The record is a 99-nucleotide RNA sequence from Microvirga subterranea, which matches "SAM-I/IV (S-adenosyl methionine) riboswitch aptamer" in Rfam. The match comes from Rfam's covariance-model search (46 bits).

RNA sequence: CUCCGUUAUCCCGAGAGGGCCAAGAGCCCCGCCAACCAGCCGAGACCGGCAACGGUGGCAAAGACGAUGUGGCCCAGAAGGGCAGCAAUAGGUCUUGGU
Numbered sequence: 001c002u003c004c005g006u007u008a009u010c011c012c013g014a015g016a017g018g019g020c021c022a023a024g025a026g027c028c029c030c031g032c033c034a035a036c037c038a039g040c041c042g043a044g045a046c047c048g049g050c051a052a053c054g055g056u057g058g059c060a061a062a063g064a065c066g067a068u069g070u071g072g073c074c075c076a077g078a079a080g081g082g083c084a085g086c087a088a089u090a091g092g093u094c095u096u097g098g099u
Stems, first nucleotide, its partner, number of pairs: 007069004015030001017029004031059003036055002039050003043095005072083004

The base pairs follow the family's consensus structure, which is taken from published work.